[Rfam]
RNA sequence: GGCGGAGGGAAGCUCAUCAGUGGGGCCACGAGCUGAGUGCGUCCUGUCACUCAAUUCCUAUGUCCCUUGGGAAGGUCUGAGACUAGGGCCAGAGGCGGCCCUAACAGGGCUCUCCCUGAGCUUCGGGGAGGUGAGUUCCCAGAGAACGGGUCUCCGCGCGAGGGUCAGACUGGGCAGGAGAUGCCGUGGGCCCCGCCCUUCGGGGAGGGACCCGGCGGAUGCCUCCUUUGCCGGAGCUUGGAACAGACUCACGGCCAGCGAAGCGAGUUCAAUGGCUGAGGUGAGGUACUCCGAACGGGGGCCUCAUAACCCAAUUCAGACUACUCUCCCCCGCC
Numbered sequence: 001g002g003c004g005g006a007g008g009g010a011a012g013c014u015c016a017u018c019a020g021u022g023g024g025g026c027c028a029c030g031a032g033c034u035g036a037g038u039g040c041g042u043c044c045u046g047u048c049a050c051u052c053a054a055u056u057c058c059u060a061u062g063u064c065c066c067u068u069g070g071g072a073a074g075g076u077c078u079g080a081g082a083c084u085a086g087g088g089c090c091a092g093a094g095g096c097g098g099c100c101c102u103a104a105c106a107g108g109g110c111u112c113u114c115c116c117u118g119a120g121c122u123u124c125g126g127g128g129a130g131g132u133g134a135g136u137u138c139c140c141a142g143a144g145a146a147c148g149g150g151u152c153u154c155c156g157c158g159c160g161a162g163g164g165u166c167a168g169a170c171u172g173g174g175c176a177g178g179a180g181a182u183g184c185c186g187u188g189g190g191c192c193c194c195g196c197c198c199u200u201c202g203g204g205g206a207g208g209g210a211c212c213c214g215g216c217g218g219a220u221g222c223c224u225c226c227u228u229u230g231c232c233g234g235a236g237c238u239u240g241g242a243a244c245a246g247a248c249u250c251a252c253g254g255c256c257a258g259c260g261a262a263g264c265g266a267g268u269u270c271a272a273u274g275g276c277u278g279a280g281g282u283g284a285g286g287u288a289c290u291c292c293g294a295a296c297g298g299g300g301g302c303c304u305c306a307u308a309a310c311c312c313a314a315u316u317c318a319g320a321c322u323a324c325u326c327u328c329c330c331c332c333g334c335c
Stems, first nucleotide, its partner, number of pairs: 001335004008329003013280004018275001022067004035052005040046001077319005087256004097111005112130006131252007152236005281307007
The record is a 335-nucleotide sequence from Aotus nancymaae, which matches "Nuclear RNase P" in Rfam. It scores 250 bits against the family's covariance model.